[Rfam]
RNA sequence: GUUGACGGCUUGCCCGUCAGCAUUGUUUUUUUAUUUUUAUUUAAUAAUUCUGACGGGCAAGGCCGUCAGC
Numbered sequence: 001g002u003u004g005a006c007g008g009c010u011u012g013c014c015c016g017u018c019a020g021c022a023u024u025g026u027u028u029u030u031u032u033a034u035u036u037u038u039a040u041u042u043a044a045u046a047a048u049u050c051u052g053a054c055g056g057g058c059a060a061g062g063c064c065g066u067c068a069g070c
Base pairs, nucleotide, nucleotide: 002069003068004067005066006065007064008063009062010060011059012058013057014056015055016054017053018052019051020050022048023047024046025045026044027043

Shown here is a 70-nucleotide sequence from Phtheirospermum japonicum, a member of the family "mir-8/mir-141/mir-200 microRNA precursor family". The match comes from Rfam's covariance-model search (52 bits). The family has 164 seed sequences and 2,669 matches in Rfam 15.1. The literature on the family includes a 2001 paper in Science by Lagos-Quintana et al., "Identification of novel genes coding for small expressed RNAs". Its family is annotated with miRNA-mediated post-transcriptional gene silencing and RISC complex in the Gene Ontology.